[Rfam]
RNA sequence: UGAUUUAACCGAUGUAAGUCGCUUUGGAUAAAGGCGUCUGCUAAAUGCCCUAAU
Numbered sequence: 001u002g003a004u005u006u007a008a009c010c011g012a013u014g015u016a017a018g019u020c021g022c023u024u025u026g027g028a029u030a031a032a033g034g035c036g037u038c039u040g041c042u043a044a045a046u047g048c049c050c051u052a053a054u
Stems, first nucleotide, its partner, number of pairs: 013043001014041003020036006
UnaL2 LINE 3' element: a 54-nucleotide RNA sequence from Gadus morhua. Lineage of the source: Eukaryota > Opisthokonta > Vertebrata > Teleostei > Gadus. A search with the family's covariance model found it, with a score of 59 bits. Rfam classes the family as a cis-regulatory element. For this family Rfam cites "Solution structure of an RNA stem-loop derived from the 3' conserved region of eel LINE UnaL2" (Baba et al., RNA, 2004).